[Rfam]
RNA sequence: AGCUGAUGACGACAAUCUAAAAUAUACUUUUCUGACACCUACUAUGAGAGCUGAACUCCAGCUCCUGAUUCUAACUUGACUCUGAGGCUC
Numbered sequence: 001a002g003c004u005g006a007u008g009a010c011g012a013c014a015a016u017c018u019a020a021a022a023u024a025u026a027c028u029u030u031u032c033u034g035a036c037a038c039c040u041a042c043u044a045u046g047a048g049a050g051c052u053g054a055a056c057u058c059c060a061g062c063u064c065c066u067g068a069u070u071c072u073a074a075c076u077u078g079a080c081u082c083u084g085a086g087g088c089u090c
Stems, first nucleotide, its partner, number of pairs: 001089004050062004
RNA: Small nucleolar RNA SNORD60